ODC internal ribosome entry site (IRES): a 158-nucleotide RNA from Phascolarctos cinereus. The base pairs follow the family's consensus structure, which was predicted with mfold. The source organism's lineage runs through Eukaryota, Metazoa, Eumetazoa, Mammalia and Phascolarctos. On this family, see Pyronnet et al., Cell Mol Life Sci 2005: "Alternative splicing facilitates internal ribosome entry on the ornithine decarboxylase mRNA".

[Rfam]
RNA sequence: AGUGCCACGGCUGCACUGAAGGCACAAUUGUAGCCUUGUAUUUAACAAGAAUGUCUCCCUGGAGAAGCGUCUUUGGUGUAAAGCUGGAAAUAGCUCAUCUUUAAAUUCCAUCUCUUAAUUUUGCAUGUUGUUGCUCUUUAGAGGAACACCAAGAAACC
Number, nucleotide and partner (000 for none) at each position: 001a000002g000003u000004g000005c000006c087007a000008c000009g000010g084011c083012u082013g000014c000015a079016c078017u075018g074019a073020a072021g071022g070023c069024a000025c000026a000027a000028u000029u000030g000031u000032a060033g059034c000035c000036u000037u000038g000039u000040a000041u000042u000043u000044a000045a000046c000047a000048a000049g000050a000051a000052u000053g000054u000055c000056u000057c000058c000059c033060u032061g000062g000063a000064g000065a000066a000067g000068c000069g023070u022071c021072u020073u019074u018075g017076g000077u000078g016079u015080a000081a000082a012083g011084c010085u000086g000087g006088a000089a000090a000091u000092a000093g157094c000095u155096c000097a000098u154099c153100u152101u151102u000103a000104a000105a000106u146107u145108c144109c143110a000111u000112c000113u000114c000115u000116u000117a000118a000119u000120u000121u000122u000123g000124c000125a000126u000127g000128u000129u000130g000131u000132u000133g000134c000135u000136c000137u000138u000139u000140a000141g000142a000143g109144g108145a107146a106147c000148a000149c000150c000151a101152a100153g099154a098155a095156a000157c093158c000